[Rfam]
RNA sequence: UGCUCAAUGACGAAGCCAUGUAAAAUCGUAGCAAUAUACGCUAUUCUGAAUUUAUUUAGGAUGCCAUAAACAUUAUGAGAGCA
Numbered sequence: 001u002g003c004u005c006a007a008u009g010a011c012g013a014a015g016c017c018a019u020g021u022a023a024a025a026u027c028g029u030a031g032c033a034a035u036a037u038a039c040g041c042u043a044u045u046c047u048g049a050a051u052u053u054a055u056u057u058a059g060g061a062u063g064c065c066a067u068a069a070a071c072a073u074u075a076u077g078a079g080a081g082c083a
Base pairs, nucleotide, nucleotide: 001083002082003081004080005079
Shown here is an 83-nucleotide RNA sequence from Oryza meyeriana, a member of the family "Small nucleolar RNA U54". The match comes from Rfam's covariance-model search (66 bits). From the family's description: U54 is a C/D box small nucleolar RNA, which acts as a methylation guide for 18S ribosomal RNA in plants. Rfam classes the family as a C/D-box small nucleolar RNA. Taxonomically the source falls in Oryza meyeriana (Eukaryota, Petrosaviidae, Oryzoideae, Oryza). The family's consensus secondary structure was predicted with PFOLD.